A member of the RNA family "nadA riboswitch" from Oxylabes madagascariensis, 72 nucleotides long. Pairs were carried over by alignment from the consensus structure, which is taken from published work. The match comes from Rfam's covariance-model search (38 bits). The literature on the family includes a 2020 paper in Nucleic Acids Res by Chen et al., "Structural distinctions between NAD+ riboswitch domains 1 and 2 determine differential folding and ligand binding".

RNA sequence: GCCUCCAACAUCCCCGCCUGAAAGGCCACGUGUUAAUCCCGAGAACUCGCUGGGAUUUCUCAGGCUGGAGGU
Numbered sequence: 001g002c003c004u005c006c007a008a009c010a011u012c013c014c015c016g017c018c019u020g021a022a023a024g025g026c027c028a029c030g031u032g033u034u035a036a037u038c039c040c041g042a043g044a045a046c047u048c049g050c051u052g053g054g055a056u057u058u059c060u061c062a063g064g065c066u067g068g069a070g071g072u
Stems, first nucleotide, its partner, number of pairs: 001072007016065006024057001026054002030050003